The record is a 105-nucleotide RNA sequence from Corynebacterium flavescens, which matches "mraW RNA" in Rfam. Taxonomically the source falls in Corynebacterium (Bacteria, Bacillati, Actinomycetota, Actinomycetes). By type it is a cis-regulatory element. The family's consensus secondary structure is taken from published work.

RNA sequence: AAGACAAGUGUGUGUAAGGACUCUGCCCGAGGUGGAUGCUCUGGUGUACUUCCCCGAUAUCAGAAACCUGCCUCGGACAGGGCCCUAUACGCACUUAACUUCUAU
Numbered sequence: 001a002a003g004a005c006a007a008g009u010g011u012g013u014g015u016a017a018g019g020a021c022u023c024u025g026c027c028c029g030a031g032g033u034g035g036a037u038g039c040u041c042u043g044g045u046g047u048a049c050u051u052c053c054c055c056g057a058u059a060u061c062a063g064a065a066a067c068c069u070g071c072c073u074c075g076g077a078c079a080g081g082g083c084c085c086u087a088u089a090c091g092c093a094c095u096u097a098a099c100u101u102c103u104a105u
Stems, first nucleotide, its partner, number of pairs: 010092007018085002021082005027076009037066001040064008
Dot-bracket structure: .........(((((((.((.(((((.(((((((((.(..((((((((.........)))))))).).))))))))).))))).))))))))).............